[Rfam]
RNA sequence: UGCACAAUAAAGCUGAAUCUAGGUUCACCUAGAGCGGGGGACUUUUUUUUGUGGGGUGAAUCACACGUAUCAACGCGUAGGGCUUACACCUUAUCGCCCGAACCCGUCAACUAACCUCGUAAGCUAAGAAAGGUGAAAAC
Numbered sequence: 001u002g003c004a005c006a007a008u009a010a011a012g013c014u015g016a017a018u019c020u021a022g023g024u025u026c027a028c029c030u031a032g033a034g035c036g037g038g039g040g041a042c043u044u045u046u047u048u049u050u051g052u053g054g055g056g057u058g059a060a061u062c063a064c065a066c067g068u069a070u071c072a073a074c075g076c077g078u079a080g081g082g083c084u085u086a087c088a089c090c091u092u093a094u095c096g097c098c099c100g101a102a103c104c105c106g107u108c109a110a111c112u113a114a115c116c117u118c119g120u121a122a123g124c125u126a127a128g129a130a131a132g133g134u135g136a137a138a139a140c
Base pairs, nucleotide, nucleotide: 011125012124013123014122018033019032020031021030022029034120035119036118037117038116039115044053054105055104056103062077064075080099081098082097083096